Background:
L13-Bacteroidia ribosomal protein leader: a 75-nucleotide sequence.

RNA sequence: GGGGAGACCCCUUAGACUCCCCGCACGGGAGUGUUAAUAGCGGUGUGUUUGGCCGCACAUCGUGGUUAGUGAAUC
Number, nucleotide and partner (000 for none) at each position: 001g022002g021003g020004g019005a018006g017007a000008c000009c000010c000011c000012u000013u000014a000015g000016a000017c006018u005019c004020c003021c002022c001023g000024c000025a000026c000027g000028g000029g000030a000031g000032u000033g000034u069035u068036a067037a066038u065039a000040g063041c062042g061043g060044u059045g058046u057047g056048u055049u000050u000051g000052g000053c000054c000055g048056c047057a046058c045059a044060u043061c042062g041063u040064g000065g038066u037067u036068a035069g034070u000071g000072a000073a000074u000075c000

Description: For this family Rfam cites "Discovery of 20 novel ribosomal leader candidates in bacteria and archaea" (Eckert and Weinberg, BMC Microbiol, 2020).